mir-3015 microRNA precursor family: a 57-nucleotide sequence from Acyrthosiphon pisum. NCBI's taxonomy places the organism under Eukaryota, Metazoa, Protostomia, Panarthropoda, Acyrthosiphon. The base pairs follow the family's consensus structure, which was predicted with RNAalifold.
[Rfam]
RNA sequence: GUUCUUACAAUAUCCGGUUAAAGUUAACCGACACUUAACAGCACAUAGUAAGAACGG
Numbered sequence: 001g002u003u004c005u006u007a008c009a010a011u012a013u014c015c016g017g018u019u020a021a022a023g024u025u026a027a028c029c030g031a032c033a034c035u036u037a038a039c040a041g042c043a044c045a046u047a048g049u050a051a052g053a054a055c056g057g
Base pairs, nucleotide, nucleotide: 001055002054003053004052005051006050007049008048010046011045013043015041017039018038019037020036021035023032024031025030